Rfam assigns this 131-nucleotide RNA from Thermoactinomyces mirandus to the family "Group II catalytic intron D1-D4-4". Rfam 15.1 lists 840 matches to the family in 506 species. The literature on the family includes a 2003 paper in Crit Rev Biochem Mol Biol by Lehmann and Schmidt, "Group II introns: structure and catalytic versatility of large natural ribozymes". The base pairs follow the family's consensus structure. The source organism's lineage runs through Bacteria, Bacillati, Bacilli, Caryophanales and Thermoactinomyces. Group II introns are found in rRNA, tRNA and mRNA of organelles in fungi, plants and protists, and also in mRNA in bacteria.
RNA sequence: UGGCUGAUGAAAGUUCAGCCGAGGUAGGGCCAAGUGCCUCGCAGCUGGCAGGCAGACGUUGGAGAAAUCUGGCGGCUGAAGUGAAAAGCUGUGCAAAGUGUAGCGGAGCAAAGCCGCAGGCCGUAACAACC
Numbered sequence: 001u002g003g004c005u006g007a008u009g010a011a012a013g014u015u016c017a018g019c020c021g022a023g024g025u026a027g028g029g030c031c032a033a034g035u036g037c038c039u040c041g042c043a044g045c046u047g048g049c050a051g052g053c054a055g056a057c058g059u060u061g062g063a064g065a066a067a068u069c070u071g072g073c074g075g076c077u078g079a080a081g082u083g084a085a086a087a088g089c090u091g092u093g094c095a096a097a098g099u100g101u102a103g104c105g106g107a108g109c110a111a112a113g114c115c116g117c118a119g120g121c122c123g124u125a126a127c128a129a130c131c
Stems, first nucleotide, its partner, number of pairs: 020041005048082001053078003057074002062069002088104006108124002